Rfam assigns this 129-nucleotide RNA sequence from Salix brachista to the family "MIR480 microRNA precursor family".

RNA sequence: UAAUUUGUUUAGGGAAAAUCCUCAUUUAAUCAUGAUAGAUUCACACUUGAUUGGUCAAAAUUAUAUGUUAUCACAAACUAAAUUACAUCAUUUUAAAUGGAGUCAAUGUUUUAGUUUAAAAAUUGGAUA
Numbered sequence: 001u002a003a004u005u006u007g008u009u010u011a012g013g014g015a016a017a018a019u020c021c022u023c024a025u026u027u028a029a030u031c032a033u034g035a036u037a038g039a040u041u042c043a044c045a046c047u048u049g050a051u052u053g054g055u056c057a058a059a060a061u062u063a064u065a066u067g068u069u070a071u072c073a074c075a076a077a078c079u080a081a082a083u084u085a086c087a088u089c090a091u092u093u094u095a096a097a098u099g100g101a102g103u104c105a106a107u108g109u110u111u112u113a114g115u116u117u118a119a120a121a122a123u124u125g126g127a128u129a
Stems, first nucleotide, its partner, number of pairs: 004127004008122002014116002018112001023108003028103001030101002
The match comes from Rfam's covariance-model search (71 bits). The literature on the family includes a 2005 paper in Plant Cell by Lu et al., "Novel and mechanical stress-responsive MicroRNAs in Populus trichocarpa that are absent from Arabidopsis".